[Rfam]
RNA: RT-18 RNA
RNA sequence: CACCACUUGGUGAAAAUUAAGUCGUAAAGAGCAAAGUUUAGUAGUUUAUUAUCGAACAACUUUGAGACUAAUAAGAAA
Numbered sequence: 001c002a003c004c005a006c007u008u009g010g011u012g013a014a015a016a017u018u019a020a021g022u023c024g025u026a027a028a029g030a031g032c033a034a035a036g037u038u039u040a041g042u043a044g045u046u047u048a049u050u051a052u053c054g055a056a057c058a059a060c061u062u063u064g065a066g067a068c069u070a071a072u073a074a075g076a077a078a
Stems, first nucleotide, its partner, number of pairs: 001012004020069004032064007044053001